[Rfam]
RNA sequence: CAUGAGCACGAAGCUGAUUCUCGUAGGAUGGCGCACACGCGAGGCGGUCUGAAGACCGCCCGGCGAUAGCCACGUGUGCGCGAGACAAAGGGCCCCUGGAGGCCCUUUUUUAUUGCCGAAA
Dot-bracket structure: ........(.............)..((...(((((((((...(((((........)))))..((....))..))))))))).....(.((((((......)))))))........))....
Rfam assigns this 121-nucleotide RNA from Aurantimonas sp. 22II-16-19i to the family "Rhizobiales sRNA Atu_C8".
The base pairs follow the family's consensus structure, which was predicted with CMfinder.